[Rfam]
RNA sequence: GCUGGAACGCGUUACGGCGUUCUGUAACCCGAGUGGGGGCAGGGUGAGCGGAAUCACGCCCAUUUGCGGCGGCCCACGUCUGCACGUCGAGGGCUCGCCCGCCCCAAGCUGGGAAUCGGCAGCGUCGCCCUCCGGAGGGGGGGUGCCGUGGUCGGUGAAGAAGGGGGAACCGCACGAGGCAGGUGACUGAGCACUGCAAACUCCUCGUUCUCAGCAGUGGGGGGAAGACGAGCCUGAUCGAUAGGAGGUGGAUCACUGGCGCGGACAGGAGCGGGGGAACCCUCACCC
Number, nucleotide and partner (000 for none) at each position: 001g040002c039003u038004g023005g022006a021007a020008c019009g018010c017011g000012u000013u000014a000015c000016g000017g010018c009019g008020u007021u006022c005023u004024g000025u000026a000027a000028c037029c036030c035031g000032a000033g000034u000035g030036g029037g028038g003039g002040c001041a000042g288043g287044g286045u285046g284047a283048g282049c000050g280051g000052a000053a000054u277055c276056a000057c273058g272059c271060c269061c268062a000063u000064u265065u264066g262067c261068g260069g000070c258071g254072g253073c000074c251075c250076a249077c248078g000079u000080c244081u243082g242083c000084a238085c000086g000087u000088c000089g000090a000091g235092g234093g233094c232095u231096c230097g229098c000099c224100c223101g000102c222103c221104c220105c219106a218107a000108g215109c214110u213111g212112g211113g210114a209115a208116u207117c154118g153119g152120c151121a000122g149123c148124g147125u000126c145127g144128c143129c142130c141131u140132c139133c138134g000135g000136a000137g000138g133139g132140g131141g130142g129143g128144u127145g126146c000147c124148g123149u122150g000151g120152u119153c118154g117155g000156u000157g000158a000159a000160g000161a000162a205163g204164g203165g202166g201167g000168a000169a000170c000171c000172g197173c196174a195175c000176g000177a000178g000179g000180c189181a188182g187183g000184u000185g000186a000187c182188u181189g180190a000191g000192c000193a000194c000195u174196g173197c172198a000199a000200a000201c166202u165203c164204c163205u162206c000207g116208u115209u114210c113211u112212c111213a110214g109215c108216a000217g000218u106219g105220g104221g103222g102223g100224g099225a000226a000227g000228a000229c097230g096231a095232g094233c093234c092235u091236g000237a000238u084239c000240g000241a000242u082243a081244g080245g000246a000247g000248g077249u076250g075251g074252a000253u072254c071255a000256c000257u000258g070259g000260c068261g067262c066263g000264g065265a064266c000267a000268g061269g060270a000271g059272c058273g057274g000275g000276g055277g054278a000279a000280c050281c000282c048283u047284c046285a045286c044287c043288c042
RNA: Plant signal recognition particle RNA
Organism: Klebsormidium nitens